[Rfam]
RNA sequence: UUUCUGAGAGAUAAAAACACGGUCCGGCUGGUAGUCCGGGCGCAGAGCAUCCGCUCUGUCAGUAACCUGCCUCCUUUGGUUGUCCAUUCUCUUUUUUGAAAAA
Numbered sequence: 001u002u003u004c005u006g007a008g009a010g011a012u013a014a015a016a017a018c019a020c021g022g023u024c025c026g027g028c029u030g031g032u033a034g035u036c037c038g039g040g041c042g043c044a045g046a047g048c049a050u051c052c053g054c055u056c057u058g059u060c061a062g063u064a065a066c067c068u069g070c071c072u073c074c075u076u077u078g079g080u081u082g083u084c085c086a087u088u089c090u091c092u093u094u095u096u097u098g099a100a101a102a103a
Base pairs, nucleotide, nucleotide: 006093007092008091009090010089011088022041023040024039025038026037027036042059043058044057045056046055047054069080070079071078

Notes: Shown here is a 103-nucleotide RNA from Hominibacterium faecale, a member of the family "azaaromatic riboswitch aptamer (yjdF RNA)". Pairs were carried over by alignment from the consensus structure, which is taken from published work. Lineage of the source: Bacteria > Bacillati > Bacillota > Clostridia > Hominibacterium.